A member of the RNA family "mir-34 microRNA precursor family" from Medioppia subpectinata, 75 nucleotides long. On this family, see Lim et al., Science 2003: "Vertebrate microRNA genes". The family has 113 seed sequences and 2,256 matches in Rfam 15.1. Human mir-34a was discovered computationally and later experimentally verified. The organism belongs to Medioppia, within Eukaryota. The match comes from Rfam's covariance-model search (54 bits).
Nucleotides: 075
Base pairs, nucleotide, nucleotide: 002074003073004072005071006070008067009066012063013062014061015060016059017058019056020055021054024053025052026051027050028049029048030047031046
Number, partner (000 for none) and nucleotide at each position: 001000g002074g003073u004072g005071u006070u007000u008067g009066g010000c011000a012063g013062u014061g015060u016059g017058g018000u019056u020055a021054g022000c023000u024053u025052g026051g027050u028049u029048g030047u031046u032000c033000a034000a035000u036000u037000g038000u039000u040000a041000c042000a043000g044000u045000a046031a047030a048029c049028a050027a051026c052025c053024a054021c055020u056019a057000u058017c059016u060015g061014c062013a063012c064000a065000g066009c067008c068000c069000a070006g071005a072004u073003a074002c075000c